[Rfam]
RNA sequence: GUCAGGACGUGCGACUGACGGAUCAGUGGGGAACCACAGGGAGCACGUGGAAGCAGAAUUGUCGACCGUCUGGGCAGCACUA
Numbered sequence: 001g002u003c004a005g006g007a008c009g010u011g012c013g014a015c016u017g018a019c020g021g022a023u024c025a026g027u028g029g030g031g032a033a034c035c036a037c038a039g040g041g042a043g044c045a046c047g048u049g050g051a052a053g054c055a056g057a058a059u060u061g062u063c064g065a066c067c068g069u070c071u072g073g074g075c076a077g078c079a080c081u082a
Base pairs, nucleotide, nucleotide: 007048008047009046010045011044012043015040016039017070018069019068020067021066026037027036028035029034059077060076061075062074063073